[Rfam]
Nucleotides: 087
Base pairs, nucleotide, nucleotide: 001087002086003085004084
Number, partner (000 for none) and nucleotide at each position: 001087u002086g003085g004084c005000u006000a007000u008000g009000a010000u011000g012000a013000a014000a015000u016000c017000a018000a019000a020000u021000g022000c023000u024000u025000g026000u027000g028000c029000c030000g031000g032000a033000g034000g035000u036000a037000g038000a039000u040000u041000c042000g043000u044000c045000u046000a047000u048000c049000g050000c051000u052000g053000a054000c055000g056000g057000u058000a059000a060000c061000a062000c063000a064000a065000u066000c067000c068000c069000u070000c071000u072000a073000a074000g075000a076000a077000g078000u079000u080000c081000u082000g083000a084004g085003c086002u087001a